[Rfam]
RNA sequence: UGGGUCGUCGGCAAGCGGUAAGCCCCCGGCUUUUGGUGCCGGUAUUCCACAGGUUCGAAUCCUGUCGACCCAG
Numbered sequence: 001u002g003g004g005u006c007g008u009c010g011g012c013a014a015g016c017g018g019u020a021a022g023c024c025c026c027c028g029g030c031u032u033u034u035g036g037u038g039c040c041g042g043u044a045u046u047c048c049a050c051a052g053g054u055u056c057g058a059a060u061c062c063u064g065u066c067g068a069c070c071c072a073g
Base pairs, nucleotide, nucleotide: 001072002071003070004069005068006067007066010024011023012022026042027041028040029039030038049065050064051063052062053061
A member of the RNA family "tRNA" from Treponema porcinum, 73 nucleotides long. Rfam classes the family as a transfer RNA. Gene Ontology term of the family: triplet codon-amino acid adaptor activity. Pairs were carried over by alignment from the consensus structure, which is taken from published work.